[Rfam]
The family of this 98-nucleotide RNA sequence from Zingiber officinale is "Small nucleolar RNA Z122". Rfam 15.1 lists 822 matches to the family in 247 species. Rfam links the family to the GO terms nucleolus and RNA processing. It is annotated as a C/D-box small nucleolar RNA.
RNA sequence: UCUGGGAGAUGAUGCGAUAUACGGAUUGUCAGACUGCUGUUCUCAUGAGCAGCAGAUUAGCCGUGCUGAAUUAUUUUGCACGUCAGUCUGAUCCCAAA
Numbered sequence: 001u002c003u004g005g006g007a008g009a010u011g012a013u014g015c016g017a018u019a020u021a022c023g024g025a026u027u028g029u030c031a032g033a034c035u036g037c038u039g040u041u042c043u044c045a046u047g048a049g050c051a052g053c054a055g056a057u058u059a060g061c062c063g064u065g066c067u068g069a070a071u072u073a074u075u076u077u078g079c080a081c082g083u084c085a086g087u088c089u090g091a092u093c094c095c096a097a098a
Stems, first nucleotide, its partner, number of pairs: 001098001003096005